RNA sequence: AUCUUUGCGCUUGGGGCAAUGACGCAGCUAGUGAGGUCAUACCGAAGCGCGUCAAUUGCUGGUUGAAAACUAUUUCCAGACCCCCUCUUCGGCCGGGUUUAUCCUGAUGCCGUUGAGAAUUUUUGGAAGGGCUUCCUUCGGGUAAAGCC
Numbered sequence: 001a002u003c004u005u006u007g008c009g010c011u012u013g014g015g016g017c018a019a020u021g022a023c024g025c026a027g028c029u030a031g032u033g034a035g036g037u038c039a040u041a042c043c044g045a046a047g048c049g050c051g052u053c054a055a056u057u058g059c060u061g062g063u064u065g066a067a068a069a070c071u072a073u074u075u076c077c078a079g080a081c082c083c084c085c086u087c088u089u090c091g092g093c094c095g096g097g098u099u100u101a102u103c104c105u106g107a108u109g110c111c112g113u114u115g116a117g118a119a120u121u122u123u124u125g126g127a128a129g130g131g132c133u134u135c136c137u138u139c140g141g142g143u144a145a146a147g148c149c
Base pairs, nucleotide, nucleotide: 021053022052023051024050025049027048028047029046035043036042037041085117086116087115090112091111092110093109094106095105096104130149131148132147133146
Rfam assigns this 149-nucleotide RNA from Carex littledalei to the family "U4 spliceosomal RNA". Its Rfam clan is "U4 clan". It is annotated as a spliceosomal small nuclear RNA.